[Rfam]
Annotation
This 53-nucleotide RNA sequence from Pseudomonas putida belongs to the Rfam family "Xanthine riboswitch aptamer (NMT1 RNA)". Its family is annotated with purine nucleobase binding in the Gene Ontology.

Nucleotides: 053
Base pairs, nucleotide, nucleotide: 006048007047008046009045010044015038018040019039021036022035023034024033025032026031
Number, partner (000 for none) and nucleotide at each position: 001000c002000c003000u004000g005000c006048g007047a008046g009045u010044a011000g012000a013000a014000g015038c016000g017000g018040u019039c020000a021036g022035u023034g024033c025032c026031a027000g028000g029000c030000a031026u032025g033024g034023c035022a036021u037000g038015g039019g040018g041000c042000a043000u044010u045009g046008c047007u048006c049000u050000u051000g052000c053000g
Pairs were carried over by alignment from the consensus structure, which is taken from published work.